Shown here is a 175-nucleotide RNA sequence from Marinisporobacter balticus, a member of the family "Group II catalytic intron D1-D4-3". The literature on the family includes a 2001 paper in Trends Genet by Bonen and Vogel, "The ins and outs of group II introns". The source organism's lineage runs through Bacteria, Bacillati, Bacillota, Peptostreptococcales and Marinisporobacter. The pairing is the family consensus, mapped onto this sequence. Rfam describes the family as follows. Group II introns are found in rRNA, tRNA and mRNA of organelles in fungi, plants and protists, and also in mRNA in bacteria.
RNA sequence: UCCACCGUGAGGUGGAAUCUAAAGGAAGUCGAAUAGCAAAAUUCCGGUCUGAGGAACACGAAUCACAUAAAAGGCUGAUUAUAGUUGGAUGAGUUUGCCAUACAAAAUAAAGUCCAUGUCACCCGAAAGCUAUUACAUGUAGAUGUGACAGAUAUAUGGAAUGAAAGAUUGUGUU
Numbered sequence: 001u002c003c004a005c006c007g008u009g010a011g012g013u014g015g016a017a018u019c020u021a022a023a024g025g026a027a028g029u030c031g032a033a034u035a036g037c038a039a040a041a042u043u044c045c046g047g048u049c050u051g052a053g054g055a056a057c058a059c060g061a062a063u064c065a066c067a068u069a070a071a072a073g074g075c076u077g078a079u080u081a082u083a084g085u086u087g088g089a090u091g092a093g094u095u096u097g098c099c100a101u102a103c104a105a106a107a108u109a110a111a112g113u114c115c116a117u118g119u120c121a122c123c124c125g126a127a128a129g130c131u132a133u134u135a136c137a138u139g140u141a142g143a144u145g146u147g148a149c150a151g152a153u154a155u156a157u158g159g160a161a162u163g164a165a166a167g168a169u170u171g172u173g174u175u
Stems, first nucleotide, its partner, number of pairs: 001016006028175001030173002037167001041162006047153005063148006074140002079135001081133004087115004093108004